[Rfam]
RNA sequence: AGGACCUAGUUCUCUUGGGUUUUGCUUUCGAAUCCAGUACUCUUCGGUCCUGCAACAGGACCCAGUGCUAAUGGGUCCUAUAACAGGACCCAAGGCUAAUGGGUCCU
Numbered sequence: 001a002g003g004a005c006c007u008a009g010u011u012c013u014c015u016u017g018g019g020u021u022u023u024g025c026u027u028u029c030g031a032a033u034c035c036a037g038u039a040c041u042c043u044u045c046g047g048u049c050c051u052g053c054a055a056c057a058g059g060a061c062c063c064a065g066u067g068c069u070a071a072u073g074g075g076u077c078c079u080a081u082a083a084c085a086g087g088a089c090c091c092a093a094g095g096c097u098a099a100u101g102g103g104u105c106c107u
Stems, first nucleotide, its partner, number of pairs: 001107008013095012030078001032076005043065002046062005

A member of the RNA family "MIR6450 microRNA precursor family" from Populus alba, 107 nucleotides long. NCBI's taxonomy places the organism under Eukaryota, Streptophyta, Embryophyta, Salicaceae, Populus.